RNA: Mammalian CPEB3 ribozyme
Organism: Alligator sinensis
RNA sequence: AGAGAUUGCAAGGUCAAGGCCAUAGCAGAAAUGCUCACAGAAUAGCCCUGUCAGAUUCCAAUGAAUCUGCCAAUUCUGCU
Numbered sequence: 001a002g003a004g005a006u007u008g009c010a011a012g013g014u015c016a017a018g019g020c021c022a023u024a025g026c027a028g029a030a031a032u033g034c035u036c037a038c039a040g041a042a043u044a045g046c047c048c049u050g051u052c053a054g055a056u057u058c059c060a061a062u063g064a065a066u067c068u069g070c071c072a073a074u075u076c077u078g079c080u
Base pairs, nucleotide, nucleotide: 013048018047019046020045024080025079026078027077028076029075030074031043032042052069053068054067055066056065057064058063